[Rfam]
Source information:
This 84-nucleotide RNA from Corymbia citriodora belongs to the Rfam family "Small nucleolar RNA Z122". The family's consensus secondary structure was predicted with PFOLD. Lineage of the source: Eukaryota > Spermatophyta > Mesangiospermae > Corymbia > Corymbia citriodora. It is annotated as a C/D-box small nucleolar RNA. The literature on the family includes a 1999 paper in Mol Cell Biol by Qu et al., "Seven novel methylation guide small nucleolar RNAs are processed from a common polycistronic transcript by Rat1p and RNase III in yeast". The family has 23 seed sequences and 822 matches in Rfam 15.1.
RNA sequence: UUUGGGAUAUGAUGCCACCACAAUGUAAUUAUCUAAGGCAGCAGCAUUGCUGAGUACAUUUUUUGCACGUCAGUCUGAUCCAAA
Numbered sequence: 001u002u003u004g005g006g007a008u009a010u011g012a013u014g015c016c017a018c019c020a021c022a023a024u025g026u027a028a029u030u031a032u033c034u035a036a037g038g039c040a041g042c043a044g045c046a047u048u049g050c051u052g053a054g055u056a057c058a059u060u061u062u063u064u065g066c067a068c069g070u071c072a073g074u075c076u077g078a079u080c081c082a083a084a
Stems, first nucleotide, its partner, number of pairs: 002084002005081003